[Rfam]
RNA sequence: UAGGAUAGUAACGGGAGCUUGGAGCAGCCAGGCUGAGAGGGCGGAGAACUCUGCCGCCGACCGGUUAACCUGAUCUGGGUAAUGCCAGCGUAGGGAUGGACAAUUUGUGUCCU
Numbered sequence: 001u002a003g004g005a006u007a008g009u010a011a012c013g014g015g016a017g018c019u020u021g022g023a024g025c026a027g028c029c030a031g032g033c034u035g036a037g038a039g040g041g042c043g044g045a046g047a048a049c050u051c052u053g054c055c056g057c058c059g060a061c062c063g064g065u066u067a068a069c070c071u072g073a074u075c076u077g078g079g080u081a082a083u084g085c086c087a088g089c090g091u092a093g094g095g096a097u098g099g100a101c102a103a104u105u106u107g108u109g110u111c112c113u
Base pairs, nucleotide, nucleotide: 009098010097012063013062014061017033018032019031020030021029040058041057042056043055044054069094070093071092072091075088076087077086078085
Rfam assigns this 113-nucleotide RNA sequence from Paenactinomyces guangxiensis to the family "TPP riboswitch aptamer (THI element)".
Its family is annotated with thiamine pyrophosphate binding in the Gene Ontology.
The family's consensus secondary structure is taken from published work.